[Rfam]
RNA: Alphaproteobacteria transfer-messenger RNA
Organism: Novosphingobium olei
Nucleotides: 367
Base pairs, nucleotide, nucleotide: 040055041054042053043052044051059217060216061215062214063213070210071209072208073207074206075205076204085196086195087194089193090192091191095111096110097109098108099107112178113177114176115175116174117173118172218233219232220231221230223244224243225242332348333347334346335345341361343359
Number, partner (000 for none) and nucleotide at each position: 001000c002000c003000c004000c005000u006000u007000u008000u009000c010000a011000u012000u013000u014000g015000a016000g017000c018000g019000c020000g021000c022000c023000g024000c025000c026000c027000u028000a029000u030000a031000u032000g033000g034000g035000u036000c037000c038000c039000u040055g041054c042053c043052g044051g045000u046000u047000u048000c049000g050000a051044c052043c053042g054041g055040c056000u057000a058000u059217g060216g061215u062214g063213a064000u065000a066000a067000a068000c069000u070210g071209c072208g073207g074206c075205g076204u077000g078000c079000a080000a081000u082000a083000g084000g085196c086195a087194c088000a089193g090192c091191g092000g093000a094000c095111c096110c097109g098108g099107g100000g101000g102000c103000g104000g105000u106000a107099c108098c109097c110096g111095g112178c113177g114176g115175c116174u117173c118172c119000a120000c121000c122000a123000u124000c125000a126000c127000c128000a129000c130000c131000g132000g133000c134000u135000g136000a137000g138000a139000c140000a141000g142000g143000c144000c145000g146000g147000g148000c149000c150000u151000u152000g153000u154000u155000g156000u157000c158000g159000c160000a161000a162000g163000g164000g165000u166000g167000u168000u169000g170000a171000u172118g173117g174116g175115g176114c177113c178112g179000a180000a181000c182000u183000a184000g185000g186000a187000u188000c189000g190000a191091c192090g193089u194087g195086u196085g197000u198000u199000g200000a201000a202000a203000a204076g205075c206074g207073c208072u209071g210070u211000u212000u213063u214062u215061g216060c217059c218233c219232g220231g221230g222000c223244u224243g225242a226000g227000u228000a229000a230221c231220c232219c233218g234000u235000u236000c237000a238000a239000g240000g241000c242225u243224c244223a245000a246000a247000a248000c249000u250000c251000a252000c253000a254000a255000g256000u257000g258000c259000c260000a261000a262000c263000g264000a265000c266000a267000a268000c269000g270000a271000a272000g273000c274000a275000c276000u277000u278000g279000c280000u281000c282000u283000c284000g285000c286000g287000g288000c289000g290000u291000a292000a293000u294000c295000u296000g297000a298000c299000g300000g301000c302000c303000u304000a305000a306000c307000g308000g309000c310000c311000u312000g313000a314000u315000c316000u317000u318000a319000c320000a321000a322000a323000g324000u325000u326000a327000g328000a329000g330000c331000a332348c333347g334346g335345u336000u337000c338000g339000g340000a341361c342000c343359g344000a345335a346334c347333c348332g349000g350000g351000u352000a353000a354000c355000a356000g357000a358000a359343u360000c361341g362000g363000a364000a365000a366000c367000c